Record summary
A member of the RNA family "SAM-I/IV (S-adenosyl methionine) riboswitch aptamer" from Microvirga vignae, 107 nucleotides long. The source organism's lineage runs through Bacteria, Pseudomonadati, Pseudomonadota, Hyphomicrobiales and Microvirga.
RNA sequence: CGGUGACAUCAAGAGUUGGACUGACGUCCAACGCCAACCUGCUGACCGAGCAAGGUGGCGCUUCCGCCAGGAAGGAUGUGGCCAAACCGGCAACGAAACGGGAUCCC
Numbered sequence: 001c002g003g004u005g006a007c008a009u010c011a012a013g014a015g016u017u018g019g020a021c022u023g024a025c026g027u028c029c030a031a032c033g034c035c036a037a038c039c040u041g042c043u044g045a046c047c048g049a050g051c052a053a054g055g056u057g058g059c060g061c062u063u064c065c066g067c068c069a070g071g072a073a074g075g076a077u078g079u080g081g082c083c084a085a086a087c088c089g090g091c092a093a094c095g096a097a098a099c100g101g102g103a104u105c106c107c
Base pairs, nucleotide, nucleotide: 006079007078008077009076010075015032017030018029019028020027021026033059034058035057038055039054040053041051042050043049046102047101081091082090083089

A search with the family's covariance model found it, with a score of 56 bits. Rfam 15.1 lists 567 matches to the family in 508 species.